[Rfam]
Overview
A member of the RNA family "MIR5070 microRNA precursor family" from Brachypodium distachyon, 115 nucleotides long. The match comes from Rfam's covariance-model search (104 bits). The base pairs follow the family's consensus structure, which was predicted with RNAalifold. Its Rfam clan is "MIR2863 microRNA precursor clan". NCBI's taxonomy places the organism under Eukaryota, Streptophyta, Euphyllophyta, Petrosaviidae, Brachypodium.

RNA sequence: UAGGGUACCCUUUGACCUUCCGUAGUUCAACCAAAUGAACUAAAAUUUUAAAAUGACACAACUUUUGAAAAACUAAUUCAUUUGUUUGAACUAAAAACGGUCAAAGGGUACCCUG
Numbered sequence: 001u002a003g004g005g006u007a008c009c010c011u012u013u014g015a016c017c018u019u020c021c022g023u024a025g026u027u028c029a030a031c032c033a034a035a036u037g038a039a040c041u042a043a044a045a046u047u048u049u050a051a052a053a054u055g056a057c058a059c060a061a062c063u064u065u066u067g068a069a070a071a072a073c074u075a076a077u078u079c080a081u082u083u084g085u086u087u088g089a090a091c092u093a094a095a096a097a098c099g100g101u102c103a104a105a106g107g108g109u110a111c112c113c114u115g
Stems, first nucleotide, its partner, number of pairs: 002114016019097001023093008032084008041075002
Dot-bracket structure: .((((((((((((((((.(...((((((((.((((((((.((...............................)).)))))))).))))))))...).)))))))))))))))).